[Rfam]
RNA: terC RNA
RNA sequence: CGCGCGGACCGGGCCCCUCUGGCGAUCGACAUGAUCGUGAUGUCGGACCGCAUCG
Numbered sequence: 001c002g003c004g005c006g007g008a009c010c011g012g013g014c015c016c017c018u019c020u021g022g023c024g025a026u027c028g029a030c031a032u033g034a035u036c037g038u039g040a041u042g043u044c045g046g047a048c049c050g051c052a053u054c055g
Stems, first nucleotide, its partner, number of pairs: 006049002009046004022038006